[Rfam]
Rfam assigns this 442-nucleotide part of an RNA from Methanobrevibacter ruminantium to the family "Archaeal large subunit ribosomal RNA". Rfam's curators put it in the seed alignment. Pairs were carried over by alignment from the consensus structure, which is taken from published work. The source organism's lineage runs through Archaea, Methanobacteriati, Methanobacteriota, Methanobacteria and Methanobrevibacter ruminantium.

RNA sequence: CCACUCGAAAUGACUCUUAGGUCAGCCUGACUGGAGAUUGGUAGCGGGGUAGAGCACUGAUUGGGCGUUUAGGGAGGGAAACUUCUCGGCGUUCUGUAAAACUCCGAACUCGUUACCGUUGUUGAUGGUUGGAGUGCGGGGCGCGGGGUAAGCUUGUGUCCCGAAAGAGAAACAACUCAGACUAUGGUUAAGGUCCCUAAAUGUUGGAUAAGUGUAAGGGAGUCUUUGGCCCAAGACAAUGGGCAGGUGGGCUUAGAAGCAGCCACCCUUUAACGAGUUCGUAACAGAUCACCCAUCGAGGUCAAAGGCAUCUAAAAUGGACGGGAAUUAAUCCAACUACCGAUACCAUAGAACACGUGGUUUUGCGUGAUUGUGUAGAGUGGCGAUCUGUCGGGGUUGAAGUUGGGGCGUGAGUUCCUUUGGACCUGGCAGGUAUGUGGAU
Numbered sequence: 001c002c003a004c005u006c007g008a009a010a011u012g013a014c015u016c017u018u019a020g021g022u023c024a025g026c027c028u029g030a031c032u033g034g035a036g037a038u039u040g041g042u043a044g045c046g047g048g049g050u051a052g053a054g055c056a057c058u059g060a061u062u063g064g065g066c067g068u069u070u071a072g073g074g075a076g077g078g079a080a081a082c083u084u085c086u087c088g089g090c091g092u093u094c095u096g097u098a099a100a101a102c103u104c105c106g107a108a109c110u111c112g113u114u115a116c117c118g119u120u121g122u123u124g125a126u127g128g129u130u131g132g133a134g135u136g137c138g139g140g141g142c143g144c145g146g147g148g149u150a151a152g153c154u155u156g157u158g159u160c161c162c163g164a165a166a167g168a169g170a171a172a173c174a175a176c177u178c179a180g181a182c183u184a185u186g187g188u189u190a191a192g193g194u195c196c197c198u199a200a201a202u203g204u205u206g207g208a209u210a211a212g213u214g215u216a217a218g219g220g221a222g223u224c225u226u227u228g229g230c231c232c233a234a235g236a237c238a239a240u241g242g243g244c245a246g247g248u249g250g251g252c253u254u255a256g257a258a259g260c261a262g263c264c265a266c267c268c269u270u271u272a273a274c275g276a277g278u279u280c281g282u283a284a285c286a287g288a289u290c291a292c293c294c295a296u297c298g299a300g301g302u303c304a305a306a307g308g309c310a311u312c313u314a315a316a317a318u319g320g321a322c323g324g325g326a327a328u329u330a331a332u333c334c335a336a337c338u339a340c341c342g343a344u345a346c347c348a349u350a351g352a353a354c355a356c357g358u359g360g361u362u363u364u365g366c367g368u369g370a371u372u373g374u375g376u377a378g379a380g381u382g383g384c385g386a387u388c389u390g391u392c393g394g395g396g397u398u399g400a401a402g403u404u405g406g407g408g409c410g411u412g413a414g415u416u417c418c419u420u421u422g423g424a425c426c427u428g429g430c431a432g433g434u435a436u437g438u439g440g441a442u
Base pairs, nucleotide, nucleotide: 001383002382003381004380005379006378011024012023013022014021015020026134027132028131029130030129031128032127036120037119038118040117041116042115043114044113045112046111047110052105053103054102060097061096063094064093065092066091067090068089072087073086074085075084076083077082138162139161140160141159142158143157144156145155146154167178168177169176182351183350184349185348186347187346188345192341193340194339201338203337204336205335206334207333208332218312219311222309223308224307225306226305227304228303229302230301231300239296240295241294242293243292245269246268247267250264251263252262275290279288280287353372354369355368356367357366358365384437386434387433388432389431390430391429392428393427394426395425402421405418406417407416408415409414